[Rfam]
Record summary
The record is a 98-nucleotide sequence from Vagococcus vulneris, which matches "Purine riboswitch aptamer" in Rfam. It scores 69 bits against the family's covariance model. The organism belongs to Vagococcus, within Bacteria. Riboswitches are metabolite binding domains within certain messenger RNAs that serve as precision sensors for their corresponding targets. Allosteric rearrangement of mRNA structure is mediated by ligand binding, and this results in modulation of gene expression. A class of riboswitches that selectively recognises guanine and becomes saturated at concentrations as low as 5 nM. In Bacillus subtilis, this mRNA motif is located on at least five separate transcriptional units that together encode 17 genes that are mostly involved in purine transport and purine nucleotide biosynthesis.
RNA sequence: AAUGGAUAUAUAAAUAAAACUUAUAUAUGGUCAUAAUAUGGUUGACCGUUUCUACCUGAUACCUCAAAUAUCAGACUAUAGGUAAAAUACGGACAAUU
Number, nucleotide and partner (000 for none) at each position: 001a000002a000003u000004g000005g000006a000007u000008a000009u000010a000011u000012a000013a000014a000015u000016a000017a000018a000019a083020c082021u081022u080023a079024u078025a077026u000027a000028u000029g047030g046031u045032c044033a043034u000035a000036a000037u000038a000039u000040g000041g000042u000043u033044g032045a031046c030047c029048g000049u000050u000051u000052c000053u000054a000055c000056c074057u073058g072059a071060u070061a069062c000063c000064u000065c000066a000067a000068a000069u061070a060071u059072c058073a057074g056075a000076c000077u025078a024079u023080a022081g021082g020083u019084a000085a000086a000087a000088u000089a000090c000091g000092g000093a000094c000095a000096a000097u000098u000